Annotation:
The family of this 139-nucleotide RNA from Drosophila melanogaster is "Small nucleolar RNA psi18S-841/snoR66". Rfam links the family to the GO terms nucleolus and RNA processing. The base pairs follow the family's consensus structure, which was predicted with RNAfold. The organism belongs to Sophophora, within Eukaryota. Rfam 15.1 lists 108 matches to the family in 46 species. Rfam's curators write: psi18S-841 is a member of the H/ACA class of snoRNA. This family is responsible for guiding the modification of uridine 841 in Drosophila 18S rRNA to pseudouridine.
Nucleotides: 139
Stems, first nucleotide, its partner, number of pairs: 002061006010053002014047003018042006025036001068137001072132003076129003080126001084121002087118008096109002
Number, partner (000 for none) and nucleotide at each position: 001000u002061g003060c004059a005058a006057a007056u008000g009000c010053a011052c012000u013000c014047u015046g016045u017000g018042u019041c020040a021039c022038a023037u024000u025036g026000a027000a028000u029000u030000u031000a032000c033000c034000u035000a036025c037023a038022u039021g040020u041019g042018a043000a044000g045016a046015c047014a048000a049000u050000u051000u052011g053010u054000u055000a056007g057006u058005u059004u060003g061002c062000u063000a064000u065000a066000u067000g068137a069000a070000a071000g072132a073131g074130a075000u076129g077128u078127g079000a080126c081000u082000u083000a084121u085120c086000c087118a088117u089116g090115c091114a092113a093112u094111u095000a096109g097108u098000g099000c100000c101000g102000u103000a104000a105000a106000a107000g108097g109096u110000u111094g112093a113092u114091u115090g116089c117088a118087u119000u120085g121084a122000a123000a124000u125000c126080g127078c128077a129076u130074u131073u132072u133000a134000c135000a136000c137068u138000a139000u